[Rfam]
RNA sequence: CGGCGAAAAACUGCCUGCCGACAUCGUCGGCGAGCCCAGGUAGCCGCGAUCUUCAAGGCUUCGGCGCCGGCCCCUCGGCGCUGAUCGACCCCGUUCGCACAGCAUCCGCCCGGCGAACGCCAUCGCAAGAUGGAGGAUGC
Numbered sequence: 001c002g003g004c005g006a007a008a009a010a011c012u013g014c015c016u017g018c019c020g021a022c023a024u025c026g027u028c029g030g031c032g033a034g035c036c037c038a039g040g041u042a043g044c045c046g047c048g049a050u051c052u053u054c055a056a057g058g059c060u061u062c063g064g065c066g067c068c069g070g071c072c073c074c075u076c077g078g079c080g081c082u083g084a085u086c087g088a089c090c091c092c093g094u095u096c097g098c099a100c101a102g103c104a105u106c107c108g109c110c111c112g113g114c115g116a117a118c119g120c121c122a123u124c125g126c127a128a129g130a131u132g133g134a135g136g137a138u139g140c
Stems, first nucleotide, its partner, number of pairs: 011034001014032001017031006040062001042060004048086004063082007113140003120133005

Annotation: The record is a 140-nucleotide sequence from Rhizobium subbaraonis, which matches "radC RNA" in Rfam. Rfam classes the family as a cis-regulatory element. Pairs were carried over by alignment from the consensus structure, which is taken from published work.